The family of this 513-nucleotide part of an RNA from Auanema sp. JU1783 is "Eukaryotic small subunit ribosomal RNA". A search with the family's covariance model found it, with a score of 1572 bits. On this family, see Yusupov et al., Science 2001: "Crystal structure of the ribosome at 5.5 A resolution". Gene Ontology terms of the family: structural constituent of ribosome and ribosome.
[Rfam]
RNA sequence: UAGUUAAAAAGCUCGUAGUUGGAUCUGAGACAUUUACUCUGAUUCGGCUCUGCCGUUAAUCAAGGUUGUGUCUAUUUUGCUGGUUUUCUGCAGAUACCCUCUGUAGUGACUAGCGAGUUUACUUUGAAUAAAUCAAAGCGCUCAAAGCAAGCGAUUGCUUGUAUGUGCUAUCAUGGAAUAAUAGAAAAGGACUUCGGUUCUAUUUAUUGGUUUAAGAAUCGAAUUAAUGAUUAAGAGAGACAAAUCGGGGGCAUUCGUAUCCCUGCGCGAGAGGUGAAAUUCGUGGACCGCAGGGGGACGUCCAAAAGCGAAAGCAUUUGCCAAGAAUGUCUUCAUUAAUCAAGAACGAAAGUCAGAGGUUCGAAGGCGAUUAGAUACCGCCCUAGUUCUGACCGUAAACUAUGCCAUCUAGCGAUCCGAUGAGGUAUUCGUGUCUCGUCGGGGAGCUUCCCGGAAACGAAAGUUUUUCGGUUCUGGGGGUAGUAUGGUUGCAAAGCUGAAACUUAAAGAAAU
Number, nucleotide and partner (000 for none) at each position: 001u476002a475003g474004u000005u000006a000007a000008a000009a473010a000011g347012c000013u345014c344015g000016u000017a000018g340019u339020u338021g000022g000023a000024u000025c000026u000027g000028a000029g000030a000031c000032a000033u000034u000035u000036a000037c000038u000039c000040u000041g000042a000043u000044u000045c000046g000047g000048c000049u000050c000051u000052g000053c000054c000055g000056u000057u000058a000059a000060u000061c000062a000063a000064g000065g000066u000067u000068g000069u000070g000071u000072c000073u000074a000075u000076u000077u000078u000079g000080c000081u000082g000083g000084u000085u000086u000087u000088c000089u000090g000091c000092a000093g000094a000095u000096a000097c000098c000099c000100u000101c000102u000103g000104u000105a000106g000107u000108g000109a000110c000111u000112a000113g000114c000115g000116a000117g000118u000119u000120u000121a000122c000123u000124u000125u000126g000127a000128a000129u000130a000131a000132a000133u000134c000135a000136a000137a000138g000139c000140g000141c000142u000143c000144a000145a000146a000147g000148c000149a000150a000151g000152c000153g000154a000155u000156u000157g000158c000159u000160u000161g000162u000163a000164u000165g000166u000167g000168c000169u000170a000171u000172c000173a000174u000175g000176g000177a000178a000179u000180a000181a000182u000183a000184g000185a000186a000187a000188a000189g000190g000191a000192c000193u000194u000195c000196g000197g000198u000199u000200c000201u000202a000203u000204u000205u000206a000207u000208u000209g000210g000211u000212u000213u000214a000215a000216g000217a000218a000219u000220c000221g000222a000223a000224u000225u000226a000227a000228u000229g000230a000231u000232u000233a000234a000235g000236a000237g334238a333239g332240a000241c329242a328243a000244a000245u326246c325247g000248g000249g000250g322251g321252c320253a319254u000255u000256c300257g299258u000259a000260u296261c295262c294263c293264u292265g291266c290267g289268c000269g000270a000271g282272a281273g280274g000275u000276g000277a000278a000279a000280u273281u272282c271283g000284u000285g000286g000287a000288c000289c267290g266291c265292a264293g263294g262295g261296g260297g000298a000299c257300g256301u000302c000303c000304a000305a000306a000307a000308g315309c314310g000311a000312a000313a000314g309315c308316a000317u000318u000319u253320g252321c251322c250323a000324a000325g246326a245327a000328u242329g241330u000331c000332u239333u238334c237335a000336u000337u000338a020339a019340u018341c000342a000343a000344g014345a013346a000347c011348g000349a000350a000351a000352g393353u392354c391355a390356g389357a388358g000359g000360u000361u000362c386363g000364a000365a000366g382367g381368c380369g379370a000371u000372u000373a000374g000375a000376u000377a000378c000379c369380g368381c367382c366383c000384u000385a000386g362387u000388u357389c356390u355391g354392a353393c352394c000395g000396u000397a000398a000399a000400c000401u000402a000403u000404g472405c471406c470407a465408u000409c463410u000411a448412g447413c446414g000415a000416u443417c442418c441419g440420a439421u438422g437423a436424g435425g434426u433427a000428u000429u000430c000431g000432u000433g426434u425435c424436u423437c422438g421439u420440c419441g418442g417443g416444g000445a000446g413447c412448u411449u000450c000451c000452c459453g458454g000455a000456a000457a000458c453459g452460a000461a000462a000463g409464u000465u407466u000467u000468u000469c000470g406471g405472u404473u009474c003475u002476g001477g000478g505479g504480g503481u000482a000483g000484u000485a000486u000487g498488g497489u496490u495491g000492c000493a000494a000495a490496g489497c488498u487499g000500a000501a000502a000503c480504u479505u478506a000507a000508a000509g000510a000511a000512a000513u000